Shown here is an 85-nucleotide sequence, a member of the family "ZMP/ZTP riboswitch aptamer (pfl RNA motif)".
[Rfam]
RNA sequence: AAGUACUUUUGUAACUGACGGAAUACAAGAUGGGGACAUCGUGGAGCAAAAGUAUGAAAAUGAGCCGACCGUCUGGGCAGUGUUU
Numbered sequence: 001a002a003g004u005a006c007u008u009u010u011g012u013a014a015c016u017g018a019c020g021g022a023a024u025a026c027a028a029g030a031u032g033g034g035g036a037c038a039u040c041g042u043g044g045a046g047c048a049a050a051a052g053u054a055u056g057a058a059a060a061u062g063a064g065c066c067g068a069c070c071g072u073c074u075g076g077g078c079a080g081u082g083u084u085u
Base pairs, nucleotide, nucleotide: 003055004054005053006052007051008050009049010048011047012046015043017073018072019071020070021069029040030039031038032037064078065077066076
Its family is annotated with one-carbon metabolic process and regulation of purine nucleotide biosynthetic process in the Gene Ontology. The sequence is in the family's curated seed alignment.